[Rfam]
RNA: small nucleolar RNA snoR137
Organism: Centaurea solstitialis
RNA sequence: AUUGCUUCAUAAUGGUGAACUCUCUCAAUAUUAAAUGGGAGAAAUUCAAGUUUCCGGAGCAUAGAUUGAAUAUUUAUGUUGCAAGUAUUCAACAUCCUGAUGUGUCUACAAUCACAUCGAUGUUACUUGUUUUUAAAAACAUUU
Numbered sequence: 001a002u003u004g005c006u007u008c009a010u011a012a013u014g015g016u017g018a019a020c021u022c023u024c025u026c027a028a029u030a031u032u033a034a035a036u037g038g039g040a041g042a043a044a045u046u047c048a049a050g051u052u053u054c055c056g057g058a059g060c061a062u063a064g065a066u067u068g069a070a071u072a073u074u075u076a077u078g079u080u081g082c083a084a085g086u087a088u089u090c091a092a093c094a095u096c097c098u099g100a101u102g103u104g105u106c107u108a109c110a111a112u113c114a115c116a117u118c119g120a121u122g123u124u125a126c127u128u129g130u131u132u133u134u135a136a137a138a139a140c141a142u143u144u
Stems, first nucleotide, its partner, number of pairs: 003061006016048004021042005079137002083133002091124003095120002099118001
Dot-bracket structure: ..((((((.......((((.(((((............)))))..)))).......)))))).................((..((......(((.((..(..................))).))).......))..)).......